Shown here is an 87-nucleotide RNA sequence from Anaerostipes rhamnosivorans, a member of the family "c-di-GMP-I riboswitch aptamer". Gene Ontology term of the family: cyclic-di-GMP binding. The family's consensus secondary structure is taken from published work.

[Rfam]
RNA sequence: UAAUAUUUUUAGUAAAACUAUCGAAAGGUAGUGACACAAAGCCAAGGGUCUAAGAUCUUUUUAAGAUUACGAUAGCCGGUUGCCGCA
Numbered sequence: 001u002a003a004u005a006u007u008u009u010u011a012g013u014a015a016a017a018c019u020a021u022c023g024a025a026a027g028g029u030a031g032u033g034a035c036a037c038a039a040a041g042c043c044a045a046g047g048g049u050c051u052a053a054g055a056u057c058u059u060u061u062u063a064a065g066a067u068u069a070c071g072a073u074a075g076c077c078g079g080u081u082g083c084c085g086c087a
Stems, first nucleotide, its partner, number of pairs: 012037002017032006040081004046077002048073003055067004

Rfam's curators write: GEMM was predicted in a large-scale screen for bacterial structured RNA regulatory elements.